[Rfam]
RNA sequence: AAGGUCUUACUUUCAAGAGAGCUAUCCGUCGACAGUAUAACUUCCAAAACACUGUCAUGGAGUUGCUCUCUUUAUUGUUUGGCCU
Numbered sequence: 001a002a003g004g005u006c007u008u009a010c011u012u013u014c015a016a017g018a019g020a021g022c023u024a025u026c027c028g029u030c031g032a033c034a035g036u037a038u039a040a041c042u043u044c045c046a047a048a049a050c051a052c053u054g055u056c057a058u059g060g061a062g063u064u065g066c067u068c069u070c071u072u073u074a075u076u077g078u079u080u081g082g083c084c085u
Stems, first nucleotide, its partner, number of pairs: 015072004020067003025061004031056003035052002
Description:
mir-46/mir-47/mir-281 microRNA precursor family: an 85-nucleotide RNA sequence from Laodelphax striatellus. The literature on the family includes a 2003 paper in Dev Cell by Aravin et al., "The small RNA profile during Drosophila melanogaster development". The family has 57 seed sequences and 307 matches in Rfam 15.1. Its family is annotated with RISC complex and miRNA-mediated post-transcriptional gene silencing in the Gene Ontology.